Shown here is a 78-nucleotide sequence from Monodelphis domestica, a member of the family "mir-34 microRNA precursor family". Rfam links the family to the GO terms RISC complex and miRNA-mediated post-transcriptional gene silencing. From the family's description: Human mir-34a was discovered computationally and later experimentally verified. The mature sequence is excised from the 5' arm of the hairpin.
RNA sequence: GUUUCUUUGGCAGUGUCUUAGCUGGUUGUUGUGAGUAAUAGAUAAGGAAGCAAUCAGCAAGUAUACUGCCCUAGAAGU
Numbered sequence: 001g002u003u004u005c006u007u008u009g010g011c012a013g014u015g016u017c018u019u020a021g022c023u024g025g026u027u028g029u030u031g032u033g034a035g036u037a038a039u040a041g042a043u044a045a046g047g048a049a050g051c052a053a054u055c056a057g058c059a060a061g062u063a064u065a066c067u068g069c070c071c072u073a074g075a076a077g078u
Base pairs, nucleotide, nucleotide: 002077003076004075005074006073009070010069012067013066014065015064016063018061019060021058023056024055025054026053027052028051029050030049
Overview
A reference for the family is Lim et al. (2003), "Vertebrate microRNA genes", Science. Pairs were carried over by alignment from the consensus structure, which was predicted with RNAalifold. NCBI's taxonomy places the organism under Eukaryota, Teleostomi, Sarcopterygii, Dipnotetrapodomorpha, Monodelphis.